[Rfam]
RNA sequence: AUAGGCAUCGCUGAUGAGCGCUGAAUGACUUUGUCGCUCGCGAUUGCCGCAGUCGCUUCUGACUUUGACCACGGAUGUACUGGCACUGGUGGAUAAGCGACGAUGAGGAAGGUCGGUGCGGUUUCGCCCCGGCCUUUUUUAUU
Numbered sequence: 001a002u003a004g005g006c007a008u009c010g011c012u013g014a015u016g017a018g019c020g021c022u023g024a025a026u027g028a029c030u031u032u033g034u035c036g037c038u039c040g041c042g043a044u045u046g047c048c049g050c051a052g053u054c055g056c057u058u059c060u061g062a063c064u065u066u067g068a069c070c071a072c073g074g075a076u077g078u079a080c081u082g083g084c085a086c087u088g089g090u091g092g093a094u095a096a097g098c099g100a101c102g103a104u105g106a107g108g109a110a111g112g113u114c115g116g117u118g119c120g121g122u123u124u125c126g127c128c129c130c131g132g133c134c135u136u137u138u139u140u141a142u143u
Stems, first nucleotide, its partner, number of pairs: 004048003007044003016039005052101007062090003066085002069083003103142014118127003